[Rfam]
RNA sequence: GGAUGUGACUGCGAUCUGGCUGCAACAUCUGUCACCCCAUUGAUCACCAGCAUUGAUUUGAUUGAUCUGACUGGCUAGGCAGGUGUCCCCUUCCUCCUUCAAUGUUCCAUGUACACUCAGUCGAAGAAGAUGACUUUCCCAAUAGAGAUGGUACCAUUCACCAGUCAGGGAUGCACAAUAGCUGUGCUUCCCUGAUAGAAUCAUCAGACAAGCUCAAACUCCAUUUGUAGGAGAAUGUAGGGUAGUCAAGUUUCCAAGAUUGCAGAUGCAACCAAGUGAGGUGUUGCAUGGGGCAAUUUGCCAUUGUUU
Numbered sequence: 001g002g003a004u005g006u007g008a009c010u011g012c013g014a015u016c017u018g019g020c021u022g023c024a025a026c027a028u029c030u031g032u033c034a035c036c037c038c039a040u041u042g043a044u045c046a047c048c049a050g051c052a053u054u055g056a057u058u059u060g061a062u063u064g065a066u067c068u069g070a071c072u073g074g075c076u077a078g079g080c081a082g083g084u085g086u087c088c089c090c091u092u093c094c095u096c097c098u099u100c101a102a103u104g105u106u107c108c109a110u111g112u113a114c115a116c117u118c119a120g121u122c123g124a125a126g127a128a129g130a131u132g133a134c135u136u137u138c139c140c141a142a143u144a145g146a147g148a149u150g151g152u153a154c155c156a157u158u159c160a161c162c163a164g165u166c167a168g169g170g171a172u173g174c175a176c177a178a179u180a181g182c183u184g185u186g187c188u189u190c191c192c193u194g195a196u197a198g199a200a201u202c203a204u205c206a207g208a209c210a211a212g213c214u215c216a217a218a219c220u221c222c223a224u225u226u227g228u229a230g231g232a233g234a235a236u237g238u239a240g241g242g243u244a245g246u247c248a249a250g251u252u253u254c255c256a257a258g259a260u261u262g263c264a265g266a267u268g269c270a271a272c273c274a275a276g277u278g279a280g281g282u283g284u285u286g287c288a289u290g291g292g293g294c295a296a297u298u299u300g301c302c303a304u305u306g307u308u309u
Stems, first nucleotide, its partner, number of pairs: 001108003006101003011096001013093002018090002025086009035074002038069002042067004046062001048060001113152002116147003121142001123140001129138002181251003187245002190242005202233001204231002208228005274309003278304001280302003283297005